[Rfam]
RNA: mir-670 microRNA precursor family
RNA sequence: GGAGGUGGGCCUGACAUCCCUGAGUGUAUGUGGUGAACCUGAACUUGCCCUGGGUUUCCUCAUAUCCAUUCAGGAGUGUCAGCUGCCUCU
Numbered sequence: 001g002g003a004g005g006u007g008g009g010c011c012u013g014a015c016a017u018c019c020c021u022g023a024g025u026g027u028a029u030g031u032g033g034u035g036a037a038c039c040u041g042a043a044c045u046u047g048c049c050c051u052g053g054g055u056u057u058c059c060u061c062a063u064a065u066c067c068a069u070u071c072a073g074g075a076g077u078g079u080c081a082g083c084u085g086c087c088u089c090u
Stems, first nucleotide, its partner, number of pairs: 001090008011082006018076001019074008028065005033059001035057007